Source information:
This 314-nucleotide RNA sequence from Flavobacterium cerinum belongs to the Rfam family "Bacterial RNase P class A". Gene Ontology terms of the family: ribonuclease P activity, tRNA processing and dimeric ribonuclease P complex. The organism belongs to Flavobacterium, within Bacteria.
[Rfam]
RNA sequence: CACGCAGGCCGCCUUAUCGCCGUCCGCAAGGAGGGAGGAAAGUCCGGACACCAUAGGGCAGCAUAGCGGGUAACACCCGUCAUUCCGGUUUGCAGAGCCGGGAGAGGACAAGUGCAACAGAAAGUAUGUACAGGUAAUGCUGUAGUGAAACCAGGUAAACUCUAUGCGGUGAAAUGCCAUGUACACCGGCAAUUAAGGGCUGCCCGCCCAAUGCCGGGGGGUAGGCAGAUUGAUCCCCGCAGUAAUGUGGGGUCUAGAUAAAUGAUAAGGAUUCCGAGGGAAUACAGAAUCCGGCUUACAGGCCUGCUUUUUUU
Dot-bracket structure: .(.(((((((((((((((.((.(((....))).))....[[[.[[[[[((((...[[[[.((((((((((.....)))))(.(((((((((...)))))))))..)((...((((.............(((((......)))))..........))..)))))))))))))...((((.......(((((......((((.]]]]))))...)))))......)))).......(((((((....)))))))...........)))))))...................]]]]]]]].).))))))).).....